[Rfam]
RNA sequence: GGAAUAUAAAAAACCGUCUCUUAACUUUUAAUUUAAAAAAGUUAAGAUCCGGUUCUUAAAUAAGAUAUUUAAGAGGCGGUUCUUAGCUUUUUUAUUUAAACGUUAAGAGACGGUCUCUUAUAUUCC
Number, nucleotide and partner (000 for none) at each position: 001g126002g125003a124004a123005u122006a121007u120008a119009a118010a000011a116012a000013a114014c113015c112016g111017u110018c109019u108020c107021u106022u105023a104024a103025c102026u000027u100028u099029u098030a097031a096032u000033u000034u094035a093036a092037a091038a090039a089040a088041g000042u086043u085044a084045a083046g082047a081048u000049c000050c000051g000052g000053u000054u000055c000056u000057u000058a000059a000060a000061u000062a000063a000064g000065a000066u000067a000068u000069u000070u000071a000072a000073g000074a000075g000076g000077c000078g000079g000080u000081u047082c046083u045084u044085a043086g042087c000088u040089u039090u038091u037092u036093u035094a034095u000096u031097u030098a029099a028100a027101c000102g025103u024104u023105a022106a021107g020108a019109g018110a017111c016112g015113g014114u013115c000116u011117c000118u009119u008120a007121u006122a005123u004124u003125c002126c001
A member of the RNA family "MIR9563 microRNA precursor family" from Brassica oleracea, 126 nucleotides long. Rfam links the family to the GO terms miRNA-mediated post-transcriptional gene silencing and RISC complex. NCBI's taxonomy places the organism under Eukaryota, eudicotyledons, Brassiceae, Brassica, Brassica oleracea.